[Rfam]
RNA sequence: UUGCCUUAAACUAAUGAGUAAGGAAAACAAAGCGGGCGGUGAGAGCCGGCCGCAGCGCAUUUUAUAAUUAACACUUUUAGUGUUUAAUUGUAGCGCAAGAAUUUGUGGAGGGGUUAUAGGCUGGCCAAGUGUUGACGCUGCCUACUUAGCAGAACUCACUUGUGCGGGCCUCCC
Numbered sequence: 001u002u003g004c005c006u007u008a009a010a011c012u013a014a015u016g017a018g019u020a021a022g023g024a025a026a027a028c029a030a031a032g033c034g035g036g037c038g039g040u041g042a043g044a045g046c047c048g049g050c051c052g053c054a055g056c057g058c059a060u061u062u063u064a065u066a067a068u069u070a071a072c073a074c075u076u077u078u079a080g081u082g083u084u085u086a087a088u089u090g091u092a093g094c095g096c097a098a099g100a101a102u103u104u105g106u107g108g109a110g111g112g113g114u115u116a117u118a119g120g121c122u123g124g125c126c127a128a129g130u131g132u133u134g135a136c137g138c139u140g141c142c143u144a145c146u147u148a149g150c151a152g153a154a155c156u157c158a159c160u161u162g163u164g165c166g167g168g169c170c171u172c173c174c
Stems, first nucleotide, its partner, number of pairs: 004023005032053004037048003055096004112174002118171005124165001126162002129159003138152004